[Rfam]
Nucleotides: 122
Stems, first nucleotide, its partner, number of pairs: 003060006036048004075086004091120012
Number, partner (000 for none) and nucleotide at each position: 001000g002000c003060g004059u005058u006057u007056g008055u009000u010000a011000a012000g013000u014000a015000u016000u017000g018000u019000u020000g021000u022000u023000g024000a025000a026000a027000a028000u029000g030000a031000u032000g033000a034000u035000u036048c037047a038046u039045u040000u041000u042000u043000a044000a045039g046038a047037u048036g049000c050000u051000c052000c053000a054000a055008a056007c057006a058005a059004g060003u061000a062000g063000a064000g065000u066000a067000g068000a069000a070000a071000g072000u073000a074000a075086a076085u077084u078083c079000g080000u081000u082000a083078g084077g085076g086075u087000a088000u089000u090000u091120a092119a093118a094117a095116g096115g097114c098113u099112g100111a101110g102109a103000c104000u105000u106000a107000u108000a109102u110101c111100u112099c113098g114097g115096c116095c117094u118093u119092u120091u121000u122000u
This 122-nucleotide RNA sequence from Avibacterium volantium belongs to the Rfam family "Haemophilus regulatory RNA responsive to iron". Rfam links the family to the GO terms positive regulation of translation, ncRNA-mediated and response to iron ion. Taxonomically the source falls in Avibacterium (Bacteria, Pseudomonadati, Pseudomonadota, Pasteurellales). For this family Rfam cites "HrrF is the Fur-regulated small RNA in nontypeable Haemophilus influenzae" (Santana et al., PLoS One, 2014).